[Rfam]
RNA sequence: AAAUGUGCAAAAUAAAAUAAUCGUAUAACCCCGAUAAUCUGGUUCGGGGGUUUCUACGGGAAACCUUAAUUUCUCAUUACGAAAUGAAUCGCCUAGGCA
Numbered sequence: 001a002a003a004u005g006u007g008c009a010a011a012a013u014a015a016a017a018u019a020a021u022c023g024u025a026u027a028a029c030c031c032c033g034a035u036a037a038u039c040u041g042g043u044u045c046g047g048g049g050g051u052u053u054c055u056a057c058g059g060g061a062a063a064c065c066u067u068a069a070u071u072u073c074u075c076a077u078u079a080c081g082a083a084a085u086g087a088a089u090c091g092c093c094u095a096g097g098c099a
Stems, first nucleotide, its partner, number of pairs: 021082005029049006058075006
Purine riboswitch aptamer: a 99-nucleotide RNA from Propionigenium maris. It scores 63 bits against the family's covariance model. NCBI's taxonomy places the organism under Bacteria, Fusobacteriati, Fusobacteriia, Propionigenium, Propionigenium maris. Riboswitches are metabolite binding domains within certain messenger RNAs that serve as precision sensors for their corresponding targets.